A member of the RNA family "Rhizobiales sRNA Atu_C8" from Parahoeflea phototrophica, 121 nucleotides long. Lineage of the source: Bacteria > Pseudomonadati > Pseudomonadota > Rhizobiaceae > Parahoeflea phototrophica. The base pairs follow the family's consensus structure, which was predicted with CMfinder. By type it is a small RNA.

RNA sequence: GAACAGUUUUGCGAACAUUCUCGUAGUACGAAGGCGCAUGGGCAGGGUGGCGUAGCCAUCCGGCGAAAGCUCCCAUGCGCGAAACACAGGCUCCUCCGGGGGCCUUUUUUUAUGGCUUGAA
Numbered sequence: 001g002a003a004c005a006g007u008u009u010u011g012c013g014a015a016c017a018u019u020c021u022c023g024u025a026g027u028a029c030g031a032a033g034g035c036g037c038a039u040g041g042g043c044a045g046g047g048u049g050g051c052g053u054a055g056c057c058a059u060c061c062g063g064c065g066a067a068a069g070c071u072c073c074c075a076u077g078c079g080c081g082a083a084a085c086a087c088a089g090g091c092u093c094c095u096c097c098g099g100g101g102g103c104c105u106u107u108u109u110u111u112a113u114g115g116c117u118u119g120a121a
Stems, first nucleotide, its partner, number of pairs: 007028001009026001030116001034080009045061006063070002086106001088105007